[Rfam]
RNA sequence: AGGCCCGAAGAGAGAGGCAGAGUCUGAUCCAGAGCCUCCGUGGCAGCUAUUGAUCAGCUGUUGCCUCUCUUUCUCUCUGGG
Number, nucleotide and partner (000 for none) at each position: 001a000002g000003g000004c000005c000006c000007g000008a000009a072010g071011a070012g069013a068014g067015a066016g065017g064018c063019a062020g061021a000022g059023u000024c057025u056026g055027a054028u053029c052030c000031a000032g000033a048034g047035c046036c000037u000038c000039c000040g000041u000042g000043g000044c000045a000046g035047c034048u033049a000050u000051u000052g029053a028054u027055c026056a025057g024058c000059u022060g000061u020062u019063g018064c017065c016066u015067c014068u013069c012070u011071u010072u009073c000074u000075c000076u000077c000078u000079g000080g000081g000
RNA: mir-574 microRNA precursor family
Organism: Myotis davidii